[Rfam]
RNA: Small Cajal body specific RNA 15
RNA sequence: GGGAGGGCAUUAUGCCAAUAAUUGCUUUGAGAUAUAUGAAAGCUGCUUUUAGCCUUCUAAAUUAAAAGGUGGAUAGAACAGGUCUUGUUUGCAAAAUAAAUUCAAGACCUACUUAUCUUCCAACAGAA
Numbered sequence: 001g002g003g004a005g006g007g008c009a010u011u012a013u014g015c016c017a018a019u020a021a022u023u024g025c026u027u028u029g030a031g032a033u034a035u036a037u038g039a040a041a042g043c044u045g046c047u048u049u050u051a052g053c054c055u056u057c058u059a060a061a062u063u064a065a066a067a068g069g070u071g072g073a074u075a076g077a078a079c080a081g082g083u084c085u086u087g088u089u090u091g092c093a094a095a096a097u098a099a100a101u102u103c104a105a106g107a108c109c110u111a112c113u114u115a116u117c118u119u120c121c122a123a124c125a126g127a128a
Base pairs, nucleotide, nucleotide: 003057004056005055006054007053008052011051012050019045020044022042023041026036028034029033068121069120071118072117073116074115075114080110081109082108083107084106085105086104087103